The family of this 73-nucleotide RNA sequence from Akanthomyces lecanii is "bZIP non canonical Hac1/Xbp1 intron". Lineage of the source: Eukaryota > Opisthokonta > saccharomyceta > sordariomyceta > Akanthomyces lecanii.
[Rfam]
RNA sequence: CACCUCUCCCGUCCUGACACAACAUCCUGCCGAGAUGUUGUCUGACCUGCAGUGUCACACGUCGGCGGAGGUG
Number, nucleotide and partner (000 for none) at each position: 001c073002a072003c071004c070005u069006c068007u000008c000009c065010c064011g063012u000013c061014c000015u000016g000017a000018c000019a000020c000021a039022a038023c037024a036025u035026c034027c000028u000029g000030c000031c000032g000033a000034g026035a025036u024037g023038u022039u021040g000041u000042c000043u000044g056045a055046c054047c000048u000049g000050c000051a000052g000053u000054g046055u045056c044057a000058c000059a000060c000061g013062u000063c011064g010065g009066c000067g000068g006069a005070g004071g003072u002073g001

Rfam classes the family as a small RNA. Rfam's curators write: bZIP intron RNA is a non-canonical intron that was first reported in HAC1 gene in yeast and XBP1 gene in Metazoa.